Guanidine-I riboswitch aptamer: a 99-nucleotide sequence from Paraburkholderia acidisoli. The pairing is the family consensus, mapped onto this sequence. Its family is annotated with regulation of gene expression in the Gene Ontology. Lineage of the source: Bacteria > Pseudomonadati > Burkholderiales > Burkholderiaceae > Paraburkholderia.
RNA sequence: GAAAUGGACGGCUAGGGUUCCGGUCUGCACACGCAGGCGCUGGUCCGAGAGCUGUCGACCUCUGGCGAGGUUACACGGCGGGAUAAAAGCCCGGGAGAG
Numbered sequence: 001g002a003a004a005u006g007g008a009c010g011g012c013u014a015g016g017g018u019u020c021c022g023g024u025c026u027g028c029a030c031a032c033g034c035a036g037g038c039g040c041u042g043g044u045c046c047g048a049g050a051g052c053u054g055u056c057g058a059c060c061u062c063u064g065g066c067g068a069g070g071u072u073a074c075a076c077g078g079c080g081g082g083a084u085a086a087a088a089g090c091c092c093g094g095g096a097g098a099g
Stems, first nucleotide, its partner, number of pairs: 007056006015046002020043002022040001023038006057072006074094001076097001080092003